[Rfam]
The record is an 86-nucleotide RNA sequence from Georgenia satyanarayanai, which matches "SAM riboswitch aptamer (S box leader)" in Rfam. A search with the family's covariance model found it, with a score of 47 bits. Taxonomically the source falls in Georgenia (Bacteria, Bacillati, Actinomycetota, Allobogoriellaceae). Pairs were carried over by alignment from the consensus structure, which is taken from published work.
RNA sequence: GCACCAUCCAGAGCAGCCGAGAGACCUGGCUCGUCGACGCUGCAGCAACCCGUUCCACCGGGUGCUCCCGCCAGGACCGAUGGAGG
Numbered sequence: 001g002c003a004c005c006a007u008c009c010a011g012a013g014c015a016g017c018c019g020a021g022a023g024a025c026c027u028g029g030c031u032c033g034u035c036g037a038c039g040c041u042g043c044a045g046c047a048a049c050c051c052g053u054u055c056c057a058c059c060g061g062g063u064g065c066u067c068c069c070g071c072c073a074g075g076a077c078c079g080a081u082g083g084a085g086g
Base pairs, nucleotide, nucleotide: 002085004083005082006081007080008079013043014042015041016040017039021032022031023030026074027073028072029071044066045065046064047063049062050061051060052059070078